[Rfam]
RNA sequence: ACGCAUGUUAACCGAGGGCUGCAGCUGGCAUCGUAGCAGCGGCUUCUCCAACAACAUGCAAGAAAAACUGAGGGGCUUUGACAGGUUGGGUCUUCCAUCUGGUGCCGCAAGCUGUCACUCAUCCCUCCUACAGAG
Dot-bracket structure: ...........((....(((((..........)))))...))...........................(((((.........(....((..............))........).......)))))........

Rfam assigns this 135-nucleotide sequence from Eleutherodactylus coqui to the family "Small nucleolar RNA SNORA44". Clan: SNORA44 clan. The family's RNA type in Rfam is H/ACA-box small nucleolar RNA. The family has 27 seed sequences and 1,056 matches in Rfam 15.1. For this family Rfam cites "RNomics: an experimental approach that identifies 201 candidates for novel, small, non-messenger RNAs in mouse" (Huttenhofer et al., EMBO J, 2001). Rfam links the family to the GO terms nucleolus and RNA processing. About the family: ACA44 is a member of the H/ACA class of snoRNA that guide the sites of modification of uridines to pseudouridines. The organism belongs to Eleutherodactylus, within Eukaryota.